[Rfam]
RNA sequence: UUCACAGGAUGAUGGUAUCUUCUUAAACCCUUGGGGAAGGGAGGGUGCUUGAGAGUCGUGAA
Numbered sequence: 001u002u003c004a005c006a007g008g009a010u011g012a013u014g015g016u017a018u019c020u021u022c023u024u025a026a027a028c029c030c031u032u033g034g035g036g037a038a039g040g041g042a043g044g045g046u047g048c049u050u051g052a053g054a055g056u057c058g059u060g061a062a
Stems, first nucleotide, its partner, number of pairs: 001062005014049010028036003
A member of the RNA family "Selenocysteine insertion sequence 1" from Vombatus ursinus, 62 nucleotides long. It scores 38 bits against the family's covariance model. Rfam's curators write: The incorporation of selenocysteine into a protein sequence is directed by an in-frame UGA codon (usually a stop codon) within the coding region of the mRNA. Selenoprotein mRNAs contain a conserved secondary structure in the 3' UTR that is required for the distinction of UGA stop from UGA selenocysteine. The selenocysteine insertion sequence (SECIS) is around 60 nt in length and adopts a hairpin structure which is sufficiently well-defined and conserved to act as a computational screen for selenoprotein genes. Lineage of the source: Eukaryota > Bilateria > Vertebrata > Dipnotetrapodomorpha > Vombatus. On this family, see Lambert et al., Biochimie 2002: "A survey of metazoan selenocysteine insertion sequences".